[Rfam]
RNA sequence: CCUUGGUCGUUGGGAGAGAGUGACACAAGAGUAACAUUCCCGCUGUCACCGCCGAAGGCGCAACCCCCAGGAACCGCUCAGGCAAAAGGGCCGACGACGCAGC
Numbered sequence: 001c002c003u004u005g006g007u008c009g010u011u012g013g014g015a016g017a018g019a020g021u022g023a024c025a026c027a028a029g030a031g032u033a034a035c036a037u038u039c040c041c042g043c044u045g046u047c048a049c050c051g052c053c054g055a056a057g058g059c060g061c062a063a064c065c066c067c068c069a070g071g072a073a074c075c076g077c078u079c080a081g082g083c084a085a086a087a088g089g090g091c092c093g094a095c096g097a098c099g100c101a102g103c
Stems, first nucleotide, its partner, number of pairs: 006098008020049006051083003054079002058077003064071002
Record summary: Glycine riboswitch aptamer: a 103-nucleotide RNA sequence from Rugosibacter aromaticivorans. Rfam links the family to the GO term glycine biosynthetic process. The source organism's lineage runs through Bacteria, Pseudomonadati, Betaproteobacteria, Nitrosomonadales and Rugosibacter.